mir-33 microRNA precursor family: a 70-nucleotide sequence from Spodoptera exigua. The organism belongs to Spodoptera, within Eukaryota. Rfam links the family to the GO terms gene silencing by miRNA and RISC complex. For this family Rfam cites "Direct sequencing and expression analysis of a large number of miRNAs in Aedes aegypti and a multi-species survey of novel mosquito miRNAs" (Li et al., BMC Genomics, 2009). The family has 73 seed sequences and 1,467 matches in Rfam 15.1.
RNA sequence: CGGGAGUGCAUUGUAGUUGCAUUGCACUGGUUUACAUGAGUUGUGCAAUAUUACUACAAGGCAAAUCUCG
Numbered sequence: 001c002g003g004g005a006g007u008g009c010a011u012u013g014u015a016g017u018u019g020c021a022u023u024g025c026a027c028u029g030g031u032u033u034a035c036a037u038g039a040g041u042u043g044u045g046c047a048a049u050a051u052u053a054c055u056a057c058a059a060g061g062c063a064a065a066u067c068u069c070g
Base pairs, nucleotide, nucleotide: 001070002069003068004067006066007063008062009061011059012058013057014056015055016054019051021049022048023047024046025045026044027043
A search with the family's covariance model found it, with a score of 58 bits.